[Rfam]
RNA sequence: AAGGUUCCGGUUCACGCCGCUCAUGCUGCAGGCGCAGCGAAGGCGACCCGGCGACC
Numbered sequence: 001a002a003g004g005u006u007c008c009g010g011u012u013c014a015c016g017c018c019g020c021u022c023a024u025g026c027u028g029c030a031g032g033c034g035c036a037g038c039g040a041a042g043g044c045g046a047c048c049c050g051g052c053g054a055c056c
Base pairs, nucleotide, nucleotide: 003056004055005054007051008050009049010048015045016044017043018042019038020037

A member of the RNA family "L31-Actinobacteria ribosomal protein leader" from Paractinoplanes abujensis, 56 nucleotides long. A reference for the family is Eckert and Weinberg (2020), "Discovery of 20 novel ribosomal leader candidates in bacteria and archaea", BMC Microbiol. A search with the family's covariance model found it, with a score of 46 bits. The base pairs follow the family's consensus structure, which is taken from published work. It is annotated as a cis-regulatory leader.